[Rfam]
RNA: c-di-AMP riboswitch aptamer (ydaO/yuaA leader)
Organism: Geodermatophilus ruber
RNA sequence: CGCCGAGUCGCCCGCGACCUUCCGAGGACGCAGGCGAGCCGGGGACCCACCGCAGUACUGGGGUGAAUCCCGCUCCCGGGCGCACCGCCCGGCGCAGGUAGGGCCGCUUCCCGCCCGAACCCGUCAGCUAACCCGGUAGGCG
Numbered sequence: 001c002g003c004c005g006a007g008u009c010g011c012c013c014g015c016g017a018c019c020u021u022c023c024g025a026g027g028a029c030g031c032a033g034g035c036g037a038g039c040c041g042g043g044g045a046c047c048c049a050c051c052g053c054a055g056u057a058c059u060g061g062g063g064u065g066a067a068u069c070c071c072g073c074u075c076c077c078g079g080g081c082g083c084a085c086c087g088c089c090c091g092g093c094g095c096a097g098g099u100a101g102g103g104c105c106g107c108u109u110c111c112c113g114c115c116c117g118a119a120c121c122c123g124u125c126a127g128c129u130a131a132c133c134c135g136g137u138a139g140g141c142g
Stems, first nucleotide, its partner, number of pairs: 001142004008037005038137006048060002061122003069098002072095001101116004